This 137-nucleotide RNA from Lepisosteus oculatus belongs to the Rfam family "Small nucleolar RNA SNORA57". Rfam 15.1 lists 1,736 matches to the family in 530 species. It scores 99 bits against the family's covariance model. From the family's description: U99 belongs to the H/ACA class of snoRNAs which are thought to guide the sites of modification of uridines to pseudouridines, the target for this family is unknown.
[Rfam]
RNA sequence: CCUCCAGUUCUUGGCAUGCGCGCAGUUGCCCGUACUCGCGUGUGUAAUGUACGGAGGUACAGUAAGCCCGGUGCAAUGUCUUCGGUACCGGCUCCGUGUCCCGUGGGCCGGUCCUAUCCUCAAUCACCGGCACACAG
Numbered sequence: 001c002c003u004c005c006a007g008u009u010c011u012u013g014g015c016a017u018g019c020g021c022g023c024a025g026u027u028g029c030c031c032g033u034a035c036u037c038g039c040g041u042g043u044g045u046a047a048u049g050u051a052c053g054g055a056g057g058u059a060c061a062g063u064a065a066g067c068c069c070g071g072u073g074c075a076a077u078g079u080c081u082u083c084g085g086u087a088c089c090g091g092c093u094c095c096g097u098g099u100c101c102c103g104u105g106g107g108c109c110g111g112u113c114c115u116a117u118c119c120u121c122a123a124u125c126a127c128c129g130g131c132a133c134a135c136a137g
Stems, first nucleotide, its partner, number of pairs: 001057005015044006022037001024036003069129005088111007